[Rfam]
RNA sequence: UUGCGCAAGUCAUGUUUAUUUGAGCAAUCUUCGCAAUCCUCUGCCGCCGCCCCAAGCCUAUUCUUAUCACCAGAAUCACUGCCCGGACAAACAGUCCACAGCGACCCGCCGAAUCAGGCCAGUCGCGGCCACCACUCCCACCGGAGCUGAGUUGGCCCCCGGGCUACACACUGUCCAGAAGACGGAGUGAGGUGAGCCGACGUCAAAAGCGUCGAGCACGGACGAAGUUCUCAAAGGGAGGCCGACGGGUCUCCCU
Numbered sequence: 001u002u003g004c005g006c007a008a009g010u011c012a013u014g015u016u017u018a019u020u021u022g023a024g025c026a027a028u029c030u031u032c033g034c035a036a037u038c039c040u041c042u043g044c045c046g047c048c049g050c051c052c053c054a055a056g057c058c059u060a061u062u063c064u065u066a067u068c069a070c071c072a073g074a075a076u077c078a079c080u081g082c083c084c085g086g087a088c089a090a091a092c093a094g095u096c097c098a099c100a101g102c103g104a105c106c107c108g109c110c111g112a113a114u115c116a117g118g119c120c121a122g123u124c125g126c127g128g129c130c131a132c133c134a135c136u137c138c139c140a141c142c143g144g145a146g147c148u149g150a151g152u153u154g155g156c157c158c159c160c161g162g163g164c165u166a167c168a169c170a171c172u173g174u175c176c177a178g179a180a181g182a183c184g185g186a187g188u189g190a191g192g193u194g195a196g197c198c199g200a201c202g203u204c205a206a207a208a209g210c211g212u213c214g215a216g217c218a219c220g221g222a223c224g225a226a227g228u229u230c231u232c233a234a235a236g237g238g239a240g241g242c243c244g245a246c247g248g249g250u251c252u253c254c255c256u
Stems, first nucleotide, its partner, number of pairs: 001012001003010002043057002076195005081164004085097004101126005108119003127157005135146004167189003171185005196217002198214006235256004240251004